[Rfam]
Nucleotides: 087
Stems, first nucleotide, its partner, number of pairs: 009078001011076001013074001017070009028060001031057007
Number, partner (000 for none) and nucleotide at each position: 001000g002000g003000c004000g005000c006000c007000a008000g009078c010000a011076c012000a013074g014000g015000c016000a017070a018069c019068g020067g021066a022065a023064u024063c025062c026000c027000a028060a029000a030000a031057g032056c033055a034054g035053c036052u037051g038000u039000c040000c041000c042000c043000a044000c045000u046000a047000u048000g049000c050000c051037c052036a053035g054034c055033u056032g057031c058000c059000c060028u061000g062025g063024g064023g065022u066021u067020u068019c069018g070017u071000u072000a073000c074013c075000c076011g077000c078009g079000c080000u081000c082000c083000u084000g085000c086000c087000a